Rfam assigns this 105-nucleotide sequence from Salipaludibacillus keqinensis to the family "SAM riboswitch aptamer (S box leader)".
RNA sequence: UUCUUAUCAAGAGAGGUGGAGGGACUGGCCCUUUGAAACCUCGGCAACAGGCUUUUAUAGUCAUUGUGCCAAUUCCAGCAAGCGAACAGCUUGAAAAGAUGAGAA
Numbered sequence: 001u002u003c004u005u006a007u008c009a010a011g012a013g014a015g016g017u018g019g020a021g022g023g024a025c026u027g028g029c030c031c032u033u034u035g036a037a038a039c040c041u042c043g044g045c046a047a048c049a050g051g052c053u054u055u056u057a058u059a060g061u062c063a064u065u066g067u068g069c070c071a072a073u074u075c076c077a078g079c080a081a082g083c084g085a086a087c088a089g090c091u092u093g094a095a096a097a098g099a100u101g102a103g104a105a
Stems, first nucleotide, its partner, number of pairs: 001105008013042005021031003025078004043070004048066002050062004074097001079093005